[Rfam]
RNA sequence: AACUGACCUUUGCCGUCAAAACGCCACGUCCUUGUGGCAUUGACGGCAUGACCGACAUCGUGUCGG
Numbered sequence: 001a002a003c004u005g006a007c008c009u010u011u012g013c014c015g016u017c018a019a020a021a022c023g024c025c026a027c028g029u030c031c032u033u034g035u036g037g038c039a040u041u042g043a044c045g046g047c048a049u050g051a052c053c054g055a056c057a058u059c060g061u062g063u064c065g066g
Stems, first nucleotide, its partner, number of pairs: 011048007023038005052066005
The family of this 66-nucleotide RNA from Lysinibacillus composti is "Bacillaceae-1 RNA". Taxonomically the source falls in Lysinibacillus (Bacteria, Bacillota, Caryophanales, Bacillaceae). The family's consensus secondary structure is taken from published work.